RNA: Small nucleolar RNA SNORD121A
Organism: Athene cunicularia
RNA sequence: GUCCAAAAUACAGUGAUGGUGUCUUUCUCAAGCACAUACCUGAUUGCUCUGUGUGGAAGCUGACUGUUGCUGAGUGAUUUUGGAU
Numbered sequence: 001g002u003c004c005a006a007a008a009u010a011c012a013g014u015g016a017u018g019g020u021g022u023c024u025u026u027c028u029c030a031a032g033c034a035c036a037u038a039c040c041u042g043a044u045u046g047c048u049c050u051g052u053g054u055g056g057a058a059g060c061u062g063a064c065u066g067u068u069g070c071u072g073a074g075u076g077a078u079u080u081u082g083g084a085u
Base pairs, nucleotide, nucleotide: 001085002084003083004082005081006080008078009077010075011074